[Rfam]
The family of this 87-nucleotide RNA from Polypterus senegalus is "let-7 microRNA precursor family". The organism belongs to Polypterus, within Eukaryota. Rfam describes the family as follows. This family represents the microRNAs (miRNA) let-7 and mir-98. let-7 was identified from a study of developmental timing in C. elegans, and was later shown to be part of a much larger class of non-coding RNAs termed miRNAs. On this family, see Rougvie, Nat Rev Genet 2001: "Control of developmental timing in animals". Its Rfam clan is "let-7 microRNA precursor clan".

RNA sequence: ACAGGAUGAGGUAGUAGGUUGUAUAGUUUGAAGGGAGGAAUUCUAUCCCAUCUAGGUGAUAACUAUACAGUCUACUGCCUUCCUUGA
Numbered sequence: 001a002c003a004g005g006a007u008g009a010g011g012u013a014g015u016a017g018g019u020u021g022u023a024u025a026g027u028u029u030g031a032a033g034g035g036a037g038g039a040a041u042u043c044u045a046u047c048c049c050a051u052c053u054a055g056g057u058g059a060u061a062a063c064u065a066u067a068c069a070g071u072c073u074a075c076u077g078c079c080u081u082c083c084u085u086g087a
Base pairs, nucleotide, nucleotide: 002086003085004084005083008081009080010079011078012077013076014075015074016073017072018071019070020069021068022067023066024065025064026063027062033049034048035047036046051058
Dot-bracket structure: .((((..((((((((((((((((((((.....((((.........)))).(......)...)))))))))))))))))))).)))).